Record summary
The family of this 67-nucleotide RNA from Psychrobacillus glaciei is "Bacillaceae-1 RNA". The source organism's lineage runs through Bacteria, Bacillati, Bacillota, Bacillaceae and Psychrobacillus. The base pairs follow the family's consensus structure, which is taken from published work.
RNA sequence: CUCCGAGGAACGAAGGCUAAGAGCGCCACAUCGUGUAGCAACGCCUUCGUGACCAACAUCCAGUUGG
Numbered sequence: 001c002u003c004c005g006a007g008g009a010a011c012g013a014a015g016g017c018u019a020a021g022a023g024c025g026c027c028a029c030a031u032c033g034u035g036u037a038g039c040a041a042c043g044c045c046u047u048c049g050u051g052a053c054c055a056a057c058a059u060c061c062a063g064u065u066g067g
Stems, first nucleotide, its partner, number of pairs: 011049007025039002028036002053067005